The record is a 79-nucleotide RNA sequence from Medicago truncatula, which matches "MIR5269 microRNA precursor family" in Rfam. The match comes from Rfam's covariance-model search (70 bits). The base pairs follow the family's consensus structure, which was predicted with RNAalifold. Rfam links the family to the GO terms RISC complex and miRNA-mediated post-transcriptional gene silencing. Taxonomically the source falls in Medicago (Eukaryota, Streptophytina, Papilionoideae, Trifolieae).
[Rfam]
RNA sequence: UUGGUUUAAACCAUUAUAGGUCUACACUUUGAAAAUUGAACUCUCACAAAAUGGUGGGACAUACAUUGAUUUCAUCCAA
Numbered sequence: 001u002u003g004g005u006u007u008a009a010a011c012c013a014u015u016a017u018a019g020g021u022c023u024a025c026a027c028u029u030u031g032a033a034a035a036u037u038g039a040a041c042u043c044u045c046a047c048a049a050a051a052u053g054g055u056g057g058g059a060c061a062u063a064c065a066u067u068g069a070u071u072u073c074a075u076c077c078a079a
Stems, first nucleotide, its partner, number of pairs: 001079004006074001008072003012068002015065001017063002022057003025053002028050004